[Rfam]
The record is a 75-nucleotide RNA sequence from Pipistrellus kuhlii, which matches "mir-9229 microRNA precursor family" in Rfam. Taxonomically the source falls in Pipistrellus (Eukaryota, Euteleostomi, Mammalia, Eutheria).
RNA sequence: GAGACACCCUUAUGGGCAGGACUUCCUUCAGUGGGGCUUUAGUGCUCAUUGAGUCUGCACCUUUAGUGUGUCUCU
Numbered sequence: 001g002a003g004a005c006a007c008c009c010u011u012a013u014g015g016g017c018a019g020g021a022c023u024u025c026c027u028u029c030a031g032u033g034g035g036g037c038u039u040u041a042g043u044g045c046u047c048a049u050u051g052a053g054u055c056u057g058c059a060c061c062u063u064u065a066g067u068g069u070g071u072c073u074c075u
Stems, first nucleotide, its partner, number of pairs: 001074007009066002012063001014061002016058003020055003028052008036043002